Notes: A member of the RNA family "Small nucleolar RNA R160" from Eragrostis curvula, 75 nucleotides long. Its family is annotated with nucleolus and RNA processing in the Gene Ontology. snoR160 is a C/D box small nucleolar RNA, which acts as a methylation guide for 25S ribosomal RNA in plants. snoR160 has been alternatively named snoZ270 in rice. It scores 74 bits against the family's covariance model. For this family Rfam cites "The high diversity of snoRNAs in plants: identification and comparative study of 120 snoRNA genes from Oryza sativa" (Chen et al., Nucleic Acids Res, 2003).
[Rfam]
RNA sequence: AGCAAAGUGAGGAGAUGAAAUGAUCCGAGUACAACAUGUUGAUACAUUCAUGGUCUUCAAAGUUCUCUGAUUGCU
Numbered sequence: 001a002g003c004a005a006a007g008u009g010a011g012g013a014g015a016u017g018a019a020a021u022g023a024u025c026c027g028a029g030u031a032c033a034a035c036a037u038g039u040u041g042a043u044a045c046a047u048u049c050a051u052g053g054u055c056u057u058c059a060a061a062g063u064u065c066u067c068u069g070a071u072u073g074c075u
Stems, first nucleotide, its partner, number of pairs: 001075005